A member of the RNA family "Manganese Mn2+ riboswitch aptamer (yybP-ykoY)" from Paraburkholderia ribeironis, 172 nucleotides long. The source organism's lineage runs through Bacteria, Pseudomonadota, Betaproteobacteria, Burkholderiaceae and Paraburkholderia. The pairing is the family consensus, mapped onto this sequence. A search with the family's covariance model found it, with a score of 106 bits.

RNA sequence: CCCCGGGUCACUGGGGAGUAGCCUUCCUUCAUCCUUUGAAGGAGAGCGCGUCAACAUACUUGGCCUGCGGGUCAUGGCGCGUUCGACCGGGUCGGUUUGGCGAGACCACUGACGUACUGCCUCGUUCUGGUCGGACGGGAAGCGGUGCGUCAUUGGUUCGUCAUCUACGUCC
Numbered sequence: 001c002c003c004c005g006g007g008u009c010a011c012u013g014g015g016g017a018g019u020a021g022c023c024u025u026c027c028u029u030c031a032u033c034c035u036u037u038g039a040a041g042g043a044g045a046g047c048g049c050g051u052c053a054a055c056a057u058a059c060u061u062g063g064c065c066u067g068c069g070g071g072u073c074a075u076g077g078c079g080c081g082u083u084c085g086a087c088c089g090g091g092u093c094g095g096u097u098u099g100g101c102g103a104g105a106c107c108a109c110u111g112a113c114g115u116a117c118u119g120c121c122u123c124g125u126u127c128u129g130g131u132c133g134g135a136c137g138g139g140a141a142g143c144g145g146u147g148c149g150u151c152a153u154u155g156g157u158u159c160g161u162c163a164u165c166u167a168c169g170u171c172c
Stems, first nucleotide, its partner, number of pairs: 026042003044084010061074005091172001